This 79-nucleotide RNA sequence from Panicum virgatum belongs to the Rfam family "Plastid-rpl20 3UTR RNA". The family has 270 seed sequences and 587 matches in Rfam 15.1.
RNA sequence: AACGAAUUCCCGGAGAGGGACUCCAGGAAGAUACAAUUAAUUAAGAUUAAGUGGUAGGAAUCAACAAGCAUGUUGCCAA
Numbered sequence: 001a002a003c004g005a006a007u008u009c010c011c012g013g014a015g016a017g018g019g020a021c022u023c024c025a026g027g028a029a030g031a032u033a034c035a036a037u038u039a040a041u042u043a044a045g046a047u048u049a050a051g052u053g054g055u056a057g058g059a060a061u062c063a064a065c066a067a068g069c070a071u072g073u074u075g076c077c078a079a
Stems, first nucleotide, its partner, number of pairs: 007029004012024004062075004